[Rfam]
Shown here is a 139-nucleotide RNA from Cynoglossus semilaevis, a member of the family "Small nucleolar RNA SNORD10".
Rfam 15.1 lists 433 matches to the family in 306 species.

RNA sequence: GUAUUAUGAUGAAAUCCAUGCGUGUCAACUGACUCUGUUGACCCUGCGGUGUUGUUACCCAUGUUAGCGUUUUGCUAAUGUGAGCUUUCACCACAACAGGACUUCAGAGACAUGAUCACACCUUCACACUUCUGAAUAC
Numbered sequence: 001g002u003a004u005u006a007u008g009a010u011g012a013a014a015u016c017c018a019u020g021c022g023u024g025u026c027a028a029c030u031g032a033c034u035c036u037g038u039u040g041a042c043c044c045u046g047c048g049g050u051g052u053u054g055u056u057a058c059c060c061a062u063g064u065u066a067g068c069g070u071u072u073u074g075c076u077a078a079u080g081u082g083a084g085c086u087u088u089c090a091c092c093a094c095a096a097c098a099g100g101a102c103u104u105c106a107g108a109g110a111c112a113u114g115a116u117c118a119c120a121c122c123u124u125c126a127c128a129c130u131u132c133u134g135a136a137u138a139c
Stems, first nucleotide, its partner, number of pairs: 001139004043100004049094002
Gene Ontology terms of the family: RNA processing and nucleolus. The base pairs follow the family's consensus structure, which was predicted with WAR. A reference for the family is Huttenhofer et al. (2001), "RNomics: an experimental approach that identifies 201 candidates for novel, small, non-messenger RNAs in mouse", EMBO J. The source organism's lineage runs through Eukaryota, Gnathostomata, Neopterygii, Pleuronectoidei and Cynoglossus.